[Rfam]
RNA sequence: AUAGGAAAAGGUGGAAAAAUGAUGCGUCCACACACCCACAGGGUCAAAAGAGAUGAGAGAACGGCGUCACUCUCUUUCCUAU
Numbered sequence: 001a002u003a004g005g006a007a008a009a010g011g012u013g014g015a016a017a018a019a020u021g022a023u024g025c026g027u028c029c030a031c032a033c034a035c036c037c038a039c040a041g042g043g044u045c046a047a048a049a050g051a052g053a054u055g056a057g058a059g060a061a062c063g064g065c066g067u068c069a070c071u072c073u074c075u076u077u078c079c080u081a082u
Base pairs, nucleotide, nucleotide: 001082002081003080004079005078006077007076008075011031012030013029014028015027021068022067023066024065025064033050034044035043036042037041055074056073057072058071059070
RNA: skipping-rope RNA